Background: Rfam assigns this 131-nucleotide RNA from Octodon degus to the family "Small nucleolar RNA SNORA61". It scores 132 bits against the family's covariance model. The family has 25 seed sequences and 881 matches in Rfam 15.1. About the family: ACA61 is a member of the H/ACA class of snoRNA that guide the sites of modification of uridines to pseudouridines.

RNA sequence: ACCCUCCAGCUUCCUUUCCCAUCAGAUCUGAACACUGGUCUUGGUGGUUGUAAAGGUGGAAAAGAAAUGCUUAAGCUGGCCUCACAGUCUUAUAGUCUGGUAUAUAGCAUGUGGGUUAGUUUCAAACAAGG
Numbered sequence: 001a002c003c004c005u006c007c008a009g010c011u012u013c014c015u016u017u018c019c020c021a022u023c024a025g026a027u028c029u030g031a032a033c034a035c036u037g038g039u040c041u042u043g044g045u046g047g048u049u050g051u052a053a054a055g056g057u058g059g060a061a062a063a064g065a066a067a068u069g070c071u072u073a074a075g076c077u078g079g080c081c082u083c084a085c086a087g088u089c090u091u092a093u094a095g096u097c098u099g100g101u102a103u104a105u106a107g108c109a110u111g112u113g114g115g116u117u118a119g120u121u122u123c124a125a126a127c128a129a130g131g
Base pairs, nucleotide, nucleotide: 003059004058006056007055019047020046021045022044023043025040026039027038028037076119077118078117079116080115081114082113091109093107